[Rfam]
RNA: mir-139 microRNA precursor family
Organism: Ornithorhynchus anatinus
RNA sequence: GUGUAGUCUACAGUGCAUGUGUCUCCAGGGACACUAGACAGCUGGAGACACAGCUCUGUUGGAUACAAC
Dot-bracket structure: ......(((((((.((.(((((((((((.............))))))))))))).)))).)))......